Rfam assigns this 149-nucleotide RNA from Pseudomonas protegens to the family "PrrF RNA". On this family, see Djapgne et al., J Bacteriol 2018: "The Pseudomonas aeruginosa PrrF1 and PrrF2 small regulatory RNAs (sRNAs) promote 2-alkyl-4-quinolone production through redundant regulation of the antR mRNA". Rfam 15.1 lists 107 matches to the family in 85 species. Rfam's curators write: PrrF RNA is a small RNA involved in iron homeostasis and is found exclusively in Pseudomonas species. The family's RNA type in Rfam is small RNA. The sequence is in the family's curated seed alignment. The organism belongs to Pseudomonas protegens, within Bacteria.
Nucleotides: 149
Stems, first nucleotide, its partner, number of pairs: 034055001036053007061088003064084001066083002069079001096105003122141008
Number, partner (000 for none) and nucleotide at each position: 001000u002000u003000g004000a005000c006000u007000u008000c009000g010000a011000a012000a013000u014000g015000a016000g017000a018000a019000u020000c021000g022000u023000u024000a025000u026000g027000a028000u029000u030000a031000u032000c033000a034055c035000a036053a037052c038051u039050g040049g041048u042047c043000g044000c045000g046000a047042g048041a049040u050039c051038a052037g053036u054000c055034g056000a057000u058000a059000a060000c061088c062087u063086g064084g065000a066083a067082g068000a069079c070000c071000a072000g073000u074000g075000g076000u077000u078000c079069g080000g081000a082067c083066u084064c085000u086063c087062a088061g089000a090000u091000u092000a093000u094000c095000u096105c097104c098103u099000c100000a101000u102000c103098a104097g105096g106000c107000u108000a109000a110000u111000c112000a113000c114000g115000g116000u117000u118000a119000u120000u121000u122141g123140a124139c125138c126137c127136g128135g129134c130000u131000c132000u133000u134129g135128c136127c137126g138125g139124g140123u141122c142000u143000u144000u145000u146000u147000u148000u149000g